The family of this 96-nucleotide RNA from Nicotiana sylvestris is "MIR6152 microRNA precursor family". The match comes from Rfam's covariance-model search (95 bits). The organism belongs to Nicotiana, within Eukaryota.
RNA sequence: UGAACAGAUUAUUGUAUUCGACUGUAUUCACGGCGUGAAACAUGUGAUUGCAUUGUUUUUAAACGAAAAGUGAAUCAAUUAACAUAAUAGACUGCU
Numbered sequence: 001u002g003a004a005c006a007g008a009u010u011a012u013u014g015u016a017u018u019c020g021a022c023u024g025u026a027u028u029c030a031c032g033g034c035g036u037g038a039a040a041c042a043u044g045u046g047a048u049u050g051c052a053u054u055g056u057u058u059u060u061a062a063a064c065g066a067a068a069a070g071u072g073a074a075u076c077a078a079u080u081a082a083c084a085u086a087a088u089a090g091a092c093u094g095c096u
Stems, first nucleotide, its partner, number of pairs: 002095001004093001009090007017082002020080002023077002026075006034065003037059006
Dot-bracket structure: .(.(....(((((((.((.((.((.((((((..(((((((((...........))))))...)))....)))))))).)))).)))))))..).).